[Rfam]
Rfam assigns this 117-nucleotide RNA from Novosphingobium colocasiae to the family "Glycine riboswitch aptamer". Its family is annotated with glycine biosynthetic process in the Gene Ontology.
RNA sequence: UAGCGAUACUCUGGAAAGCGUCCGCGCCGCACGUCGGCCGGGCCGCCGACGGUGUAACCCCGUUCUCCACAAGGGACGCGGGGGAAGCUCUCAGGUUUCCGUGACAGAGGGGGUGCC
Numbered sequence: 001u002a003g004c005g006a007u008a009c010u011c012u013g014g015a016a017a018g019c020g021u022c023c024g025c026g027c028c029g030c031a032c033g034u035c036g037g038c039c040g041g042g043c044c045g046c047c048g049a050c051g052g053u054g055u056a057a058c059c060c061c062g063u064u065c066u067c068c069a070c071a072a073g074g075g076a077c078g079c080g081g082g083g084g085a086a087g088c089u090c091u092c093a094g095g096u097u098u099c100c101g102u103g104a105c106a107g108a109g110g111g112g113g114u115g116c117c
Base pairs, nucleotide, nucleotide: 007111009109010108011107012106013105020043021042022041023040045096046095047094048092049091052090054088058083059082060081061080062079063078